[Rfam]
RNA sequence: AAAUAGUUCCGGUAGGUAAGGUUACCACAGGGAUACGGAUUGUUGCCGCGAAAUGAUGGAGACAUCAUCAGUUGGUUUGAACAGGCCGCAUCGAAAAACAAGGUGCAGCAUAAUACAAUUUCAUCGCCCUGUGAUACUAAAGCUCAAACGGUGGCAGUUCCAU
Numbered sequence: 001a002a003a004u005a006g007u008u009c010c011g012g013u014a015g016g017u018a019a020g021g022u023u024a025c026c027a028c029a030g031g032g033a034u035a036c037g038g039a040u041u042g043u044u045g046c047c048g049c050g051a052a053a054u055g056a057u058g059g060a061g062a063c064a065u066c067a068u069c070a071g072u073u074g075g076u077u078u079g080a081a082c083a084g085g086c087c088g089c090a091u092c093g094a095a096a097a098a099c100a101a102g103g104u105g106c107a108g109c110a111u112a113a114u115a116c117a118a119u120u121u122c123a124u125c126g127c128c129c130u131g132u133g134a135u136a137c138u139a140a141a142g143c144u145c146a147a148a149c150g151g152u153g154g155c156a157g158u159u160c161c162a163u
Stems, first nucleotide, its partner, number of pairs: 005159004010154001011149001013101001015144003020138003026133007039119005045076004054067002057064002085109002090104003